This 84-nucleotide RNA sequence from Lymphocryptovirus macacinegamma4 belongs to the Rfam family "mir-BART12 microRNA precursor family". For this family Rfam cites "Epstein-Barr virus microRNAs are evolutionarily conserved and differentially expressed" (Cai et al., PLoS Pathog, 2006). Lineage of the source: Viruses > Heunggongvirae > Herviviricetes > Orthoherpesviridae > Lymphocryptovirus macacinegamma4.
RNA sequence: CCGGUGACCUGAGACCCACCCUUCUCGACGGGGCAGGUGUUAUAAGUGUCCUGUAGAGUAUGGGUGUGGUUUUAGUGCACGCGG
Numbered sequence: 001c002c003g004g005u006g007a008c009c010u011g012a013g014a015c016c017c018a019c020c021c022u023u024c025u026c027g028a029c030g031g032g033g034c035a036g037g038u039g040u041u042a043u044a045a046g047u048g049u050c051c052u053g054u055a056g057a058g059u060a061u062g063g064g065u066g067u068g069g070u071u072u073u074a075g076u077g078c079a080c081g082c083g084g
Stems, first nucleotide, its partner, number of pairs: 001084003004080003009075008017066005024058003028054008